[Rfam]
RNA sequence: AAGUGGCUGAUCCGAAGAGCCGAUGACCGGGGUGGACAGAUCGGCCGCGCUGGAUUGUGAAGACGCCCCCGAGUGCCCUCCCGGGCCCGCCUGUUCUG
Number, nucleotide and partner (000 for none) at each position: 001a000002a000003g079004u000005g077006g076007c075008u000009g000010a000011u000012c000013c000014g000015a000016a000017g000018a000019g000020c044021c043022g042023a041024u000025g000026a000027c000028c035029g000030g000031g000032g000033u000034g000035g028036a000037c000038a000039g000040a000041u023042c022043g021044g020045c000046c000047g066048c065049g064050c000051u000052g000053g000054a000055u000056u000057g000058u000059g000060a000061a000062g000063a000064c049065g048066c047067c000068c000069c000070c000071g000072a000073g000074u000075g007076c006077c005078c000079u003080c000081c000082c000083g092084g091085g090086c000087c000088c000089g000090c085091c084092u083093g000094u000095u000096c000097u000098g000
Record summary:
This 98-nucleotide RNA from Nocardioides panacis belongs to the Rfam family "Mycobacterium sRNA ncrMT1302". It scores 50 bits against the family's covariance model. The literature on the family includes a 2012 paper in Gene by Pelly et al., "A screen for non-coding RNA in Mycobacterium tuberculosis reveals a cAMP-responsive RNA that is expressed during infection".